[Rfam]
RNA sequence: AUACUUACCAGGCAGGGGAGAUACCAUGGUUAUGAAGGUGGUUUUCCCAGGGUGAGGUUCAUCCAUUGCAUUCCAGAUGUGCUGAUCCCUGAGAUUUCCCCAAAUGGAGAAAACUCAGCUGCAUAGUAUGUGGUAGUGGGGGACUGCAUUCAUGCUUUCUCAUG
Numbered sequence: 001a002u003a004c005u006u007a008c009c010a011g012g013c014a015g016g017g018g019a020g021a022u023a024c025c026a027u028g029g030u031u032a033u034g035a036a037g038g039u040g041g042u043u044u045u046c047c048c049a050g051g052g053u054g055a056g057g058u059u060c061a062u063c064c065a066u067u068g069c070a071u072u073c074c075a076g077a078u079g080u081g082c083u084g085a086u087c088c089c090u091g092a093g094a095u096u097u098c099c100c101c102a103a104a105u106g107g108a109g110a111a112a113a114c115u116c117a118g119c120u121g122c123a124u125a126g127u128a129u130g131u132g133g134u135a136g137u138g139g140g141g142g143a144c145u146g147c148a149u150u151c152a153u154g155c156u157u158u159c160u161c162a163u164g
Base pairs, nucleotide, nucleotide: 012122013121014120015119016048017047018046019045020044021043023042024041025040026039027038049090050089051088052087054086056083057082058081060079061078062077063076093116094115095113096111097110099107100106138163140161141160142159143158146155147154148153
Source information:
The record is a 164-nucleotide sequence from Sousa chinensis, which matches "U1 spliceosomal RNA" in Rfam. A search with the family's covariance model found it, with a score of 122 bits. Rfam classes the family as a spliceosomal small nuclear RNA. Rfam's curators write: U1 is a small nuclear RNA (snRNA) component of the spliceosome (involved in pre-mRNA splicing). Its 5' end forms complementary base pairs with the 5' splice junction, thus defining the 5' donor site of an intron. There are significant differences in sequence and secondary structure between metazoan and yeast U1 snRNAs, the latter being much longer (568 nucleotides as compared to 164 nucleotides in human). Nevertheless, secondary structure predictions suggest that all U1 snRNAs share a 'common core' consisting of helices I, II, the proximal region of III, and IV. This family does not contain the larger yeast sequences. Pairs were carried over by alignment from the consensus structure, which is taken from published work. Lineage of the source: Eukaryota > Vertebrata > Eutheria > Odontoceti > Sousa.